[Rfam]
Fluoride riboswitch aptamer (crcB RNA motif): a 65-nucleotide RNA from Streptomyces scopuliridis. The source organism's lineage runs through Bacteria, Bacillati, Actinomycetota, Actinomycetes and Streptomyces scopuliridis.
RNA sequence: GAAGGGCCCGGCGAUGGGGCUCGCCGUAACCGCACCGAGCGGGUGCUGAUGGCCUCUACCUGAUG
Numbered sequence: 001g002a003a004g005g006g007c008c009c010g011g012c013g014a015u016g017g018g019g020c021u022c023g024c025c026g027u028a029a030c031c032g033c034a035c036c037g038a039g040c041g042g043g044u045g046c047u048g049a050u051g052g053c054c055u056c057u058a059c060c061u062g063a064u065g
Base pairs, nucleotide, nucleotide: 010025011024012023013022016056017055018054019053020052021051032046033045034044035043
It scores 47 bits against the family's covariance model.